RNA sequence: GAAAUUGGCGGAGAUGGCAUUCUCCCUGAACCGCCGCGCUCCGCGCGGCUAAUGAUGCCUACCAGUCC
Numbered sequence: 001g002a003a004a005u006u007g008g009c010g011g012a013g014a015u016g017g018c019a020u021u022c023u024c025c026c027u028g029a030a031c032c033g034c035c036g037c038g039c040u041c042c043g044c045g046c047g048g049c050u051a052a053u054g055a056u057g058c059c060u061a062c063c064a065g066u067c068c
Stems, first nucleotide, its partner, number of pairs: 010025004016059006033049006

The family of this 68-nucleotide sequence from Paraburkholderia eburnea is "Fluoride riboswitch aptamer (crcB RNA motif)".